[Rfam]
The family of this 207-nucleotide RNA from Clostridioides difficile is "Group II catalytic intron D1-D4-5". Its family is annotated with Group II intron splicing in the Gene Ontology. On this family, see Bonen and Vogel, Trends Genet 2001: "The ins and outs of group II introns". It is one of the family's seed sequences. Group II introns are found in rRNA, tRNA and mRNA of organelles in fungi, plants and protists, and also in mRNA in bacteria.

RNA sequence: GAGAACUGAUAAUUCGAAAAGUCGAAUGACGGAGUAACGCCCUGAAAGGCUUUAGCUAAAACUGCGACAGGCGAUAAAUUAUUAAGGAUUUCAUGGUCUGGAGCUCGCAGAAGUCGACUGAGAAGACGCCCUAAUCGUAUUUUGAGAAUACGAAAGGAAAUGCGAACUAGAGGUAGUCGAGUGUCCGAUAGGUCGGGCUUCCAUAAA
Dot-bracket structure: .................((((((.......((.(.....).))....))))))((((......(((((((((.((.((.(.......).)).)).)))))....))))......(((((.....((((((((...(((((((...)))))))..)))...(.((.((((....)))))))))))).....)))))))))........
Numbered sequence: 001g002a003g004a005a006c007u008g009a010u011a012a013u014u015c016g017a018a019a020a021g022u023c024g025a026a027u028g029a030c031g032g033a034g035u036a037a038c039g040c041c042c043u044g045a046a047a048g049g050c051u052u053u054a055g056c057u058a059a060a061a062c063u064g065c066g067a068c069a070g071g072c073g074a075u076a077a078a079u080u081a082u083u084a085a086g087g088a089u090u091u092c093a094u095g096g097u098c099u100g101g102a103g104c105u106c107g108c109a110g111a112a113g114u115c116g117a118c119u120g121a122g123a124a125g126a127c128g129c130c131c132u133a134a135u136c137g138u139a140u141u142u143u144g145a146g147a148a149u150a151c152g153a154a155a156g157g158a159a160a161u162g163c164g165a166a167c168u169a170g171a172g173g174u175a176g177u178c179g180a181g182u183g184u185c186c187g188a189u190a191g192g193u194c195g196g197g198c199u200u201c202c203a204u205a206a207a
Stems, first nucleotide, its partner, number of pairs: 018053006031043002034040001054199004064108004068100005074094002077091002080088001115195005125185005130157003136152007161180001163179002166177004